[Rfam]
RNA sequence: UGCACGCACUACUGUAAGUCGCUGUGGAUAAAAGCGUCUGUUAAAUGUCAUGUA
Number, nucleotide and partner (000 for none) at each position: 001u000002g000003c000004a000005c000006g000007c000008a000009c000010u000011a000012c000013u043014g041015u040016a039017a000018g000019u000020c036021g035022c034023u033024g000025u031026g000027g000028a000029u000030a000031a025032a000033a023034g022035c021036g020037u000038c000039u016040g015041u014042u000043a013044a000045a000046u000047g000048u000049c000050a000051u000052g000053u000054a000
The family of this 54-nucleotide RNA sequence from Coregonus sp. 'balchen' is "UnaL2 LINE 3' element".
The match comes from Rfam's covariance-model search (59 bits).
The base pairs follow the family's consensus structure, which is taken from published work.
Rfam's curators write: The eel long interspersed element (LINE) UnaL2 and its partner short interspersed element (SINE) share a conserved 3' tail containing a stem-loop that is critical for their retrotransposition.
By type it is a cis-regulatory element.
Its family is annotated with transposition, RNA-mediated in the Gene Ontology.
Rfam 15.1 lists 493,311 matches to the family in 99 species.
Lineage of the source: Eukaryota > Eumetazoa > Chordata > Euteleosteomorpha > Coregonus.